[Rfam]
RNA sequence: CAGAACAGAACAAACACGGAUCUGUGUUCAGCGAUCCCGUUGAUGGAGGGCAGUUCUGCUGUUCUCUGUGUUUCGGUUGAACGCUGGACAGUUCGACGACUUAAGGAGCCAUCAAUCUUGUGGAUGGUCUUUACAUUUCCGGUCGACAGAUCUCAGAUUAAAGGUUGGCGCUGGGUGUUCACUCCGGUCUUGAGCUCCCUUGUCCUUGACUUGGUGAGCUCGGCUGGAGAUCCUGGUUGCUGACGGCGUCAUAUUCCUACUCUCUUUACCGAAUUGGCCGUCGGCCACUGAGGUUAGGGAAUAACCAUGACCUGCCAACAUUA
Numbered sequence: 001c002a003g004a005a006c007a008g009a010a011c012a013a014a015c016a017c018g019g020a021u022c023u024g025u026g027u028u029c030a031g032c033g034a035u036c037c038c039g040u041u042g043a044u045g046g047a048g049g050g051c052a053g054u055u056c057u058g059c060u061g062u063u064c065u066c067u068g069u070g071u072u073u074c075g076g077u078u079g080a081a082c083g084c085u086g087g088a089c090a091g092u093u094c095g096a097c098g099a100c101u102u103a104a105g106g107a108g109c110c111a112u113c114a115a116u117c118u119u120g121u122g123g124a125u126g127g128u129c130u131u132u133a134c135a136u137u138u139c140c141g142g143u144c145g146a147c148a149g150a151u152c153u154c155a156g157a158u159u160a161a162a163g164g165u166u167g168g169c170g171c172u173g174g175g176u177g178u179u180c181a182c183u184c185c186g187g188u189c190u191u192g193a194g195c196u197c198c199c200u201u202g203u204c205c206u207u208g209a210c211u212u213g214g215u216g217a218g219c220u221c222g223g224c225u226g227g228a229g230a231u232c233c234u235g236g237u238u239g240c241u242g243a244c245g246g247c248g249u250c251a252u253a254u255u256c257c258u259a260c261u262c263u264c265u266u267u268a269c270c271g272a273a274u275u276g277g278c279c280g281u282c283g284g285c286c287a288c289u290g291a292g293g294u295u296a297g298g299g300a301a302u303a304a305c306c307a308u309g310a311c312c313u314g315c316c317a318a319c320a321u322u323a
Base pairs, nucleotide, nucleotide: 018153019152020151021150022149023148024147025146026089027088028087029086030085031084033082035080036079037076038075039074043069045067046066047065048064049063051061052060053059097145098144099143100142101141104132105131106130108128109127110126164240165239170237171236172235173234174233175232186225187224188223189222192221193220194219195218196217197216198214199213245316246315247314248311249310250309251308252307261300262299263298264297265296268294269293270292276286277285278284279283
This 323-nucleotide RNA sequence from Aspergillus ibericus belongs to the Rfam family "A. fumigatus sRNA Afu_309". A search with the family's covariance model found it, with a score of 273 bits. The family has 10 seed sequences and 663 matches in Rfam 15.1. Pairs were carried over by alignment from the consensus structure, which was predicted with WAR.